[Rfam]
RNA sequence: CGCGUUGUUCAGCCAGGCCGAACUCGACCGCCGUUUCAAGCCCUGAAGCCUUCAUCGAUCAACAAUCGCGACACCUGCGGAGGCGAGUCGAUCUGCAAAGUCUUGCGGAUUGUCCCU
Numbered sequence: 001c002g003c004g005u006u007g008u009u010c011a012g013c014c015a016g017g018c019c020g021a022a023c024u025c026g027a028c029c030g031c032c033g034u035u036u037c038a039a040g041c042c043c044u045g046a047a048g049c050c051u052u053c054a055u056c057g058a059u060c061a062a063c064a065a066u067c068g069c070g071a072c073a074c075c076u077g078c079g080g081a082g083g084c085g086a087g088u089c090g091a092u093c094u095g096c097a098a099a100g101u102c103u104u105g106c107g108g109a110u111u112g113u114c115c116c117u
Stems, first nucleotide, its partner, number of pairs: 016032003020028001079116002082113001089112002092109007

A member of the RNA family "ALIL pseudoknot" from Burkholderia glumae, 117 nucleotides long. The match comes from Rfam's covariance-model search (61 bits). The source organism's lineage runs through Bacteria, Pseudomonadota, Burkholderiales, Burkholderia and Burkholderia glumae. Rfam links the family to the GO term positive regulation of translational frameshifting. The base pairs follow the family's consensus structure, which is taken from published work.